[Rfam]
RNA sequence: ACAACGGCUCUUUUCAGAGCCACCUCUUUCUCCUGAAAGAUCUCUU
Dot-bracket structure: .....((((((....)))))).........................
A member of the RNA family "Histone 3' UTR stem-loop" from Capitella teleta, 46 nucleotides long.
The mRNAs of metazoan histone genes lack a poly-A tail. 3' end processing occurs at a site between a highly conserved stem-loop (modelled by this family) and a purine rich region around 20 nts downstream (the histone downstream element, or HDE). The stem-loop is bound by a 31 kDa stem-loop binding protein (SLBP - also termed the histone hairpin binding protein, or HBP). Together with U7 snRNA binding of the HDE, SLBP binding nucleate s the formation of the processing complex. The histone 3' UTR stem-loop is also involved in nucleocytoplasmic transport of the mRNA, and in stability regulation and translation efficiency in the cytoplasm.
Pairs were carried over by alignment from the consensus structure, which is taken from published work.
The source organism's lineage runs through Eukaryota, Opisthokonta, Metazoa, Lophotrochozoa and Capitella.